[Rfam]
RNA: Y RNA
Organism: Microcebus murinus
RNA sequence: AGUUGGUCCGAGUGGUGUUACAACUAAUGGAUCACAACAUUACAGAUUCCUUUGUUCCUUCUCCACUCUCACUGCUCCACUUGACAACUGAAA
Numbered sequence: 001a002g003u004u005g006g007u008c009c010g011a012g013u014g015g016u017g018u019u020a021c022a023a024c025u026a027a028u029g030g031a032u033c034a035c036a037a038c039a040u041u042a043c044a045g046a047u048u049c050c051u052u053u054g055u056u057c058c059u060u061c062u063c064c065a066c067u068c069u070c071a072c073u074g075c076u077c078c079a080c081u082u083g084a085c086a087a088c089u090g091a092a093a
Stems, first nucleotide, its partner, number of pairs: 001089004006085003010082002014078002017072002022056003026052002
Dot-bracket structure: ((((.(((.((..((.((...(((.((.......................)).)))..............))....))..)))))))))....